[Rfam]
The record is a 77-nucleotide sequence from Candidatus Vecturithrix granuli, which matches "c-di-GMP-I riboswitch aptamer" in Rfam. A search with the family's covariance model found it, with a score of 51 bits. About the family: GEMM was predicted in a large-scale screen for bacterial structured RNA regulatory elements. Genes associated with GEMM are involved in a diverse array of functions, including chemotaxis regulation, signal transduction, secretion and chitin.
RNA sequence: UCCUGAUAAAGCUAAACCCAUCGUGAGGUGGGGACGGAAAGCCGCUGAUCUUGAAAAAAGAAAGCCGGGUUACCUCG
Number, nucleotide and partner (000 for none) at each position: 001u000002c000003c000004u000005g000006a000007u000008a000009a000010a000011g000012c037013u036014a000015a000016a000017c032018c031019c030020a029021u028022c027023g000024u000025g000026a000027g022028g021029u020030g019031g018032g017033g000034a000035c000036g013037g012038a000039a000040a071041g070042c069043c068044g000045c067046u000047g065048a000049u061050c060051u000052u000053g000054a000055a000056a000057a000058a000059a000060g050061a049062a000063a000064g000065c047066c000067g045068g043069g042070u041071u040072a000073c000074c000075u000076c000077g000